Rfam assigns this 70-nucleotide sequence from Rodentolepis nana to the family "HDV ribozyme from F. prausnitzii". Rfam 15.1 lists 3,803 matches to the family in 91 species. NCBI's taxonomy places the organism under Eukaryota, Metazoa, Spiralia, Rhabditophora, Rodentolepis. The base pairs follow the family's consensus structure, which is taken from published work. Rfam links the family to the GO term catalytic activity. A reference for the family is Webb et al. (2009), "Widespread occurrence of self-cleaving ribozymes", Science.

[Rfam]
RNA sequence: GGUGUGCGAUAGACUCACCUCCACGUGGUGCACACUGAGCAACGUAAACUCAUGCGGCAAAAAAGUCGAU
Numbered sequence: 001g002g003u004g005u006g007c008g009a010u011a012g013a014c015u016c017a018c019c020u021c022c023a024c025g026u027g028g029u030g031c032a033c034a035c036u037g038a039g040c041a042a043c044g045u046a047a048a049c050u051c052a053u054g055c056g057g058c059a060a061a062a063a064a065g066u067c068g069a070u
Base pairs, nucleotide, nucleotide: 001036002035003034004033005032006031007030017029018028019027043056044055045054046053